Rfam assigns this 72-nucleotide RNA from Medicago truncatula to the family "MIR2629 microRNA precursor family".
RNA sequence: GUUUGAGGUUUUCCUCGACAGUUAACUGCUGCCGGUUUACUAAAACUUCGACAGUUAACUGCCAAAGAACAU
Numbered sequence: 001g002u003u004u005g006a007g008g009u010u011u012u013c014c015u016c017g018a019c020a021g022u023u024a025a026c027u028g029c030u031g032c033c034g035g036u037u038u039a040c041u042a043a044a045a046c047u048u049c050g051a052c053a054g055u056u057a058a059c060u061g062c063c064a065a066a067g068a069a070c071a072u
Stems, first nucleotide, its partner, number of pairs: 012068002015065001017063001019061010
Lineage of the source: Eukaryota > Tracheophyta > Magnoliopsida > Fabales > Medicago. A search with the family's covariance model found it, with a score of 62 bits.